Annotation
The family of this 90-nucleotide RNA from Candidozyma auris is "Small nucleolar RNA snR57". The family's RNA type in Rfam is C/D-box small nucleolar RNA. On this family, see Lowe and Eddy, Science 1999: "A computational screen for methylation guide snoRNAs in yeast". Its family is annotated with RNA processing and nucleolus in the Gene Ontology. NCBI's taxonomy places the organism under Eukaryota, Fungi, Ascomycota, saccharomyceta, Candidozyma auris.
[Rfam]
RNA sequence: ACCGACAUGAUUAAAUACAAAGAUGUACUCUGAGGUGUACAUGCAGGACAAAAAUUAUCAAUAGGAAUUCUUCGUUUAUGAUUUGUCGGU
Dot-bracket structure: ((((..................................................................................))))